[Rfam]
RNA sequence: GACACCUUUAAAAUCAGUCCAGAGAGGCUGGGAAGGUUGCACGGAAAGUACAGCGGCAUAGCUGCGCGCAUUUUGCUGUACAAUUUUUCUGCAAGUCUACCCUCCCGCCUUAACUGGCAGGGAGGGUUUUUAUU
Numbered sequence: 001g002a003c004a005c006c007u008u009u010a011a012a013a014u015c016a017g018u019c020c021a022g023a024g025a026g027g028c029u030g031g032g033a034a035g036g037u038u039g040c041a042c043g044g045a046a047a048g049u050a051c052a053g054c055g056g057c058a059u060a061g062c063u064g065c066g067c068g069c070a071u072u073u074u075g076c077u078g079u080a081c082a083a084u085u086u087u088u089c090u091g092c093a094a095g096u097c098u099a100c101c102c103u104c105c106c107g108c109c110u111u112a113a114c115u116g117g118c119a120g121g122g123a124g125g126g127u128u129u130u131u132a133u134u
Base pairs, nucleotide, nucleotide: 004037005036006035007034008033009032014031015030016029017028018027019026045084048081049080050079051078052077053076054075055074056073099127100126101125102124103123104122105121106120107118108117109116

The family of this 134-nucleotide sequence from Sporosarcina sp. Marseille-Q4063 is "PyrR binding site". This family represents the PyrR binding site and terminator structure. This RNA structure is found upstream of a variety of genes involved in pyrimidine biosynthesis and transport. The alignment also includes a portion of the antiterminator structure. The family's consensus secondary structure is taken from published work. The source organism's lineage runs through Bacteria, Bacilli, Caryophanales, Caryophanaceae and Sporosarcina. By type it is a cis-regulatory element. A search with the family's covariance model found it, with a score of 57 bits.